[Rfam]
RNA sequence: GGUCUCCUGGUGCUUACCACAGGCUGUGUUUUUACACUGACUGUAUAGAUAAAGAGGAGGAAAAGUAAACCUACCCCAUACAUACGUCAGCCUAAGCCCUGUGCUGGUCUGUAUUGUGAAUGGGAAGACAUGC
Numbered sequence: 001g002g003u004c005u006c007c008u009g010g011u012g013c014u015u016a017c018c019a020c021a022g023g024c025u026g027u028g029u030u031u032u033u034a035c036a037c038u039g040a041c042u043g044u045a046u047a048g049a050u051a052a053a054g055a056g057g058a059g060g061a062a063a064a065g066u067a068a069a070c071c072u073a074c075c076c077c078a079u080a081c082a083u084a085c086g087u088c089a090g091c092c093u094a095a096g097c098c099c100u101g102u103g104c105u106g107g108u109c110u111g112u113a114u115u116g117u118g119a120a121u122g123g124g125a126a127g128a129c130a131u132g133c
Stems, first nucleotide, its partner, number of pairs: 003060006020043003026037004075124005088111003092107003096104002
The record is a 133-nucleotide RNA from Castor canadensis, which matches "Small nucleolar RNA SNORA51" in Rfam. Rfam 15.1 lists 2,121 matches to the family in 210 species. Lineage of the source: Eukaryota > Bilateria > Glires > Castoridae > Castor. The family's consensus secondary structure was predicted with PFOLD. Rfam's curators write: ACA51 is a member of the H/ACA class of snoRNA that guide the sites of modification of uridines to pseudouridines.